The family of this 98-nucleotide RNA sequence from Acipenser ruthenus is "mir-181 microRNA precursor family".
The family has 157 seed sequences and 3,490 matches in Rfam 15.1.
For this family Rfam cites "microRNAs: tiny regulators with great potential" (Ambros, Cell, 2001).
The match comes from Rfam's covariance-model search (49 bits).
Taxonomically the source falls in Acipenser (Eukaryota, Chordata, Euteleostomi, Actinopterygii).
Rfam links the family to the GO terms miRNA-mediated post-transcriptional gene silencing and RISC complex.

RNA sequence: CGGUCCCGAUGCACAUUCAUUGCUGUCGGUGGGUUGAGAAAAUCUUAAAAAUGACAAAAUAACAAAACUCGCCGACCAGUGAAUGGAAUUGUGUCCAG
Number, nucleotide and partner (000 for none) at each position: 001c098002g000003g096004u000005c093006c000007c091008g090009a000010u000011g000012c000013a000014c085015a084016u083017u082018c081019a080020u079021u078022g077023c000024u000025g076026u075027c074028g073029g072030u071031g070032g000033g068034u067035u066036g000037a000038g000039a000040a000041a000042a000043u000044c000045u000046u000047a000048a000049a000050a000051a000052u000053g000054a000055c000056a000057a000058a000059a000060u000061a000062a000063c000064a000065a000066a035067a034068c033069u000070c031071g030072c029073c028074g027075a026076c025077c022078a021079g020080u019081g018082a017083a016084u015085g014086g000087a000088a000089u000090u008091g007092u000093g005094u000095c000096c003097a000098g001